RNA sequence: GUUUCGCACCUGUGUCUUGCUGAACCAUUUCCUUAUGUAGCAGGUUGAGCAAAAUUUCAGGUGUGUGAGAAA
Numbered sequence: 001g002u003u004u005c006g007c008a009c010c011u012g013u014g015u016c017u018u019g020c021u022g023a024a025c026c027a028u029u030u031c032c033u034u035a036u037g038u039a040g041c042a043g044g045u046u047g048a049g050c051a052a053a054a055u056u057u058c059a060g061g062u063g064u065g066u067g068a069g070a071a072a
Base pairs, nucleotide, nucleotide: 002070003069004068005067006066007063008062009061010060011059012058014055015054017052018051020049021048023046025044026043
Notes
A member of the RNA family "mir-87 microRNA precursor family" from Musca domestica, 72 nucleotides long. NCBI's taxonomy places the organism under Eukaryota, Bilateria, Hexapoda, Muscinae, Musca. For this family Rfam cites "Systematic discovery and characterization of fly microRNAs using 12 Drosophila genomes" (Stark et al., Genome Res, 2007). The match comes from Rfam's covariance-model search (51 bits).